RNA sequence: UCGUGCCUGGCUCCCUGUAUGCCACAAGAAAACAUCGAUUUAGUUUCAAAAUCGAUCACUAGUGGCGUACAGAGUAGUCAAGCAUGA
Numbered sequence: 001u002c003g004u005g006c007c008u009g010g011c012u013c014c015c016u017g018u019a020u021g022c023c024a025c026a027a028g029a030a031a032a033c034a035u036c037g038a039u040u041u042a043g044u045u046u047c048a049a050a051a052u053c054g055a056u057c058a059c060u061a062g063u064g065g066c067g068u069a070c071a072g073a074g075u076a077g078u079c080a081a082g083c084a085u086g087a
Stems, first nucleotide, its partner, number of pairs: 001087006008080005014074001016071009027060002
This 87-nucleotide sequence belongs to the Rfam family "mir-160 microRNA precursor family".
Rfam's curators put it in the seed alignment.
The family has 7 seed sequences and 1,502 matches in Rfam 15.1.